[Rfam]
RNA sequence: GGAUGUGAGGGUGAUCUGGCUGUGACACAUGUCACCCCAUUGAUCGCCAGGGUUGAUUCAGCUGAUCUGGCUGGCUAGGUGAGUGUCCCCUUCCUCCCUCACCACUCCAGGUGCGUCCCUCCUGAAGCUGUGCACUCAGUCGAAGAGGACGACCUUCUCUGAUAGAGGAGGACCAUUCUUUGGUCAAUGGUAUAUGAGUAGCUGCGUUCCCCUGCUAGUAGGCUACCCCAGAAGGCUGUCGAGGUCCGUUUGCAGGAGAACGUAGGGUAGUCAAGCUUCCAAGACUCAAGACACAUCCAAAUGAGGCAUGCAUGUGGCAGUCUGCCUUUCUUA
Numbered sequence: 001g002g003a004u005g006u007g008a009g010g011g012u013g014a015u016c017u018g019g020c021u022g023u024g025a026c027a028c029a030u031g032u033c034a035c036c037c038c039a040u041u042g043a044u045c046g047c048c049a050g051g052g053u054u055g056a057u058u059c060a061g062c063u064g065a066u067c068u069g070g071c072u073g074g075c076u077a078g079g080u081g082a083g084u085g086u087c088c089c090c091u092u093c094c095u096c097c098c099u100c101a102c103c104a105c106u107c108c109a110g111g112u113g114c115g116u117c118c119c120u121c122c123u124g125a126a127g128c129u130g131u132g133c134a135c136u137c138a139g140u141c142g143a144a145g146a147g148g149a150c151g152a153c154c155u156u157c158u159c160u161g162a163u164a165g166a167g168g169a170g171g172a173c174c175a176u177u178c179u180u181u182g183g184u185c186a187a188u189g190g191u192a193u194a195u196g197a198g199u200a201g202c203u204g205c206g207u208u209c210c211c212c213u214g215c216u217a218g219u220a221g222g223c224u225a226c227c228c229c230a231g232a233a234g235g236c237u238g239u240c241g242a243g244g245u246c247c248g249u250u251u252g253c254a255g256g257a258g259a260a261c262g263u264a265g266g267g268u269a270g271u272c273a274a275g276c277u278u279c280c281a282a283g284a285c286u287c288a289a290g291a292c293a294c295a296u297c298c299a300a301a302u303g304a305g306g307c308a309u310g311c312a313u314g315u316g317g318c319a320g321u322c323u324g325c326c327u328u329u330c331u332u333a
Stems, first nucleotide, its partner, number of pairs: 001108003005102007013093002018090002024087005030081004035074002037070003042067004046062002116171002118168004122139004127135001140162003147158003201276003207270002210267006223258002227256002231253001233251003300332002303328005308321001309319003
RNA: 7SK RNA
Organism: Diceros bicornis